[Rfam]
RNA sequence: ACCUUAUCCAGAGAGGGGAAGGGACUGGCCCAAUGAACCCUCGGCAGCAGGCUACUUGUAGCACUGUGCCAAAUCCAGCAGGCGAAAGCCUGACAGAUAAGAC
Dot-bracket structure: ..((((((....(((((...(((.[[[[)))......)))))((((.((.((((....))))..))))))...(]]]](((((....)))))..)))))))..
Numbered sequence: 001a002c003c004u005u006a007u008c009c010a011g012a013g014a015g016g017g018g019a020a021g022g023g024a025c026u027g028g029c030c031c032a033a034u035g036a037a038c039c040c041u042c043g044g045c046a047g048c049a050g051g052c053u054a055c056u057u058g059u060a061g062c063a064c065u066g067u068g069c070c071a072a073a074u075c076c077a078g079c080a081g082g083c084g085a086a087a088g089c090c091u092g093a094c095a096g097a098u099a100a101g102a103c
Stems, first nucleotide, its partner, number of pairs: 003101006013042005021031003025078004043070004048066002051062004074095001079092005
The family of this 103-nucleotide sequence from Paenalkalicoccus suaedae is "SAM riboswitch aptamer (S box leader)". The base pairs follow the family's consensus structure, which is taken from published work.